[Rfam]
RNA: Trypanosomatid snoRNA TB10Cs4H3
Organism: Trypanosoma conorhini
RNA sequence: GACGCCCCCCCAACCGCCUCGCACCGUGCUGCCCUGUGCACUGCUUGGUGAUUUUGGGGGCGGAGAG
Number, nucleotide and partner (000 for none) at each position: 001g000002a000003c062004g061005c060006c059007c057008c000009c000010c000011c000012a000013a000014c000015c000016g049017c048018c047019u000020c000021g044022c043023a042024c000025c000026g041027u040028g039029c038030u000031g000032c000033c000034c000035u000036g000037u000038g029039c028040a027041c026042u023043g022044c021045u000046u000047g018048g017049u016050g000051a000052u000053u000054u000055u000056g000057g007058g000059g006060g005061c004062g003063g000064a000065g000066a000067g000